[Rfam]
RNA sequence: GAAUGAAAUGAUGAAUGUGAAAUUGUUUCCCUAUUGGUUUGAUUUGCCGCGAUGAUGGCAACUUCAGUAUUAGCUCUAUCUGAACAUUC
Dot-bracket structure: .((((...................................(...((((........)))).)......................)))).
Numbered sequence: 001g002a003a004u005g006a007a008a009u010g011a012u013g014a015a016u017g018u019g020a021a022a023u024u025g026u027u028u029c030c031c032u033a034u035u036g037g038u039u040u041g042a043u044u045u046g047c048c049g050c051g052a053u054g055a056u057g058g059c060a061a062c063u064u065c066a067g068u069a070u071u072a073g074c075u076c077u078a079u080c081u082g083a084a085c086a087u088u089c
Stems, first nucleotide, its partner, number of pairs: 002088004041062001045060004

The record is an 89-nucleotide sequence from Hibiscus trionum, which matches "Small nucleolar RNA Z102/R77" in Rfam. Clan: SNORD44 clan. Taxonomically the source falls in Hibiscus (Eukaryota, Mesangiospermae, Gunneridae, Pentapetalae). The literature on the family includes a 2001 paper in J Mol Biol by Barneche et al., "Identification of 66 box C/D snoRNAs in Arabidopsis thaliana: extensive gene duplications generated multiple isoforms predicting new ribosomal RNA 2'-O-methylation sites". The match comes from Rfam's covariance-model search (92 bits). By type it is a C/D-box small nucleolar RNA.